Shown here is a 104-nucleotide RNA from Phreatobacter cathodiphilus, a member of the family "TPP riboswitch aptamer (THI element)".

[Rfam]
RNA sequence: AUAGUCUCGUCGGGGUGCCCUUCACCGGGCUGAGAGGUCGCAAGGCCAACCCGUCGUACCUGAACCGGGUCAUGCCGGCGGAGGAAACCGAGAUGGACGCAUUG
Numbered sequence: 001a002u003a004g005u006c007u008c009g010u011c012g013g014g015g016u017g018c019c020c021u022u023c024a025c026c027g028g029g030c031u032g033a034g035a036g037g038u039c040g041c042a043a044g045g046c047c048a049a050c051c052c053g054u055c056g057u058a059c060c061u062g063a064a065c066c067g068g069g070u071c072a073u074g075c076c077g078g079c080g081g082a083g084g085a086a087a088c089c090g091a092g093a094u095g096g097a098c099g100c101a102u103u104g
Stems, first nucleotide, its partner, number of pairs: 006092004011053004017030004037046003059084003065078004